[Rfam]
RNA sequence: GUUCAGCUAGUAGCGCAUGGGCCAGGUUGGUAGGAGGAAACCUGGUUGACGAGGUGGAGACUGUUCGGAUUAUCAGCGGGGAGUCUCCAGGGCUGAUCACGGCCCUGACAAGCAAACGCACAAAACUGGUUGGUAACGAUCAGGCCAAAAAGCUUGCAGUGAUAUAG
Numbered sequence: 001g002u003u004c005a006g007c008u009a010g011u012a013g014c015g016c017a018u019g020g021g022c023c024a025g026g027u028u029g030g031u032a033g034g035a036g037g038a039a040a041c042c043u044g045g046u047u048g049a050c051g052a053g054g055u056g057g058a059g060a061c062u063g064u065u066c067g068g069a070u071u072a073u074c075a076g077c078g079g080g081g082a083g084u085c086u087c088c089a090g091g092g093c094u095g096a097u098c099a100c101g102g103c104c105c106u107g108a109c110a111a112g113c114a115a116a117c118g119c120a121c122a123a124a125a126c127u128g129g130u131u132g133g134u135a136a137c138g139a140u141c142a143g144g145c146c147a148a149a150a151a152g153c154u155u156g157c158a159g160u161g162a163u164a165u166a167g
Stems, first nucleotide, its partner, number of pairs: 020047008056088005065076001067074002089106006112157004117152001126143007
glmS glucosamine-6-phosphate activated ribozyme aptamer: a 167-nucleotide RNA from Reticulibacter mediterranei.